[Rfam]
RNA sequence: GUGUCAGAGAAAGGACUCUGCUGUUGGUCCCCCUCCAUGGUUCGCAAAACGGGUGAUGGGCGCAGAAUCCAGACUCUGCUUUUG
Numbered sequence: 001g002u003g004u005c006a007g008a009g010a011a012a013g014g015a016c017u018c019u020g021c022u023g024u025u026g027g028u029c030c031c032c033c034u035c036c037a038u039g040g041u042u043c044g045c046a047a048a049a050c051g052g053g054u055g056a057u058g059g060g061c062g063c064a065g066a067a068u069c070c071a072g073a074c075u076c077u078g079c080u081u082u083u084g
Stems, first nucleotide, its partner, number of pairs: 001083001003081001005078005013070003017066004022062004027057001031055001033053003

The record is an 84-nucleotide RNA from Microtus ochrogaster, which matches "mir-541 microRNA precursor family" in Rfam. The family's consensus secondary structure was predicted with RNAalifold.